Rfam assigns this 218-nucleotide RNA sequence from Paenibacillus sp. FSL R7-0331 to the family "glmS glucosamine-6-phosphate activated ribozyme aptamer". The match comes from Rfam's covariance-model search (61 bits). This entry contains a glucosamine-6-phosphate activated ribozyme that is found in the mRNA for GlmS. GlmS is an enzyme that uses fructose-6-phosphate and glutamine to generate glucosamine-6-phosphate. Taxonomically the source falls in Paenibacillus (Bacteria, Bacilli, Caryophanales, Paenibacillaceae). The family's RNA type in Rfam is riboswitch.
RNA sequence: CAGCAAUAGCAAGCGCCAGAGCUUGAUCUUGCGCGGGGGAGAAGGGACAGUAAAUGCCGGAUUGGCGGCAGGCUGGAACGGAUCACGGCAGAUGUAAGCUGACGAGGUGGAGGUGUUCGAAAUGUUCGGCGGGGACCUCCCGGUGAUACACCAGAGCCGUAAAUAUAAGCGGAAAAUGUCAGGGCGACCUUUCACACAACGCUUGUAUGGGUGUACGA
Numbered sequence: 001c002a003g004c005a006a007u008a009g010c011a012a013g014c015g016c017c018a019g020a021g022c023u024u025g026a027u028c029u030u031g032c033g034c035g036g037g038g039g040a041g042a043a044g045g046g047a048c049a050g051u052a053a054a055u056g057c058c059g060g061a062u063u064g065g066c067g068g069c070a071g072g073c074u075g076g077a078a079c080g081g082a083u084c085a086c087g088g089c090a091g092a093u094g095u096a097a098g099c100u101g102a103c104g105a106g107g108u109g110g111a112g113g114u115g116u117u118c119g120a121a122a123u124g125u126u127c128g129g130c131g132g133g134g135a136c137c138u139c140c141c142g143g144u145g146a147u148a149c150a151c152c153a154g155a156g157c158c159g160u161a162a163a164u165a166u167a168a169g170c171g172g173a174a175a176a177u178g179u180c181a182g183g184g185c186g187a188c189c190u191u192u193c194a195c196a197c198a199a200c201g202c203u204u205g206u207a208u209g210g211g212u213g214u215a216c217g218a
Stems, first nucleotide, its partner, number of pairs: 020100006029091004109140005117129004141159004163208007177194002181190003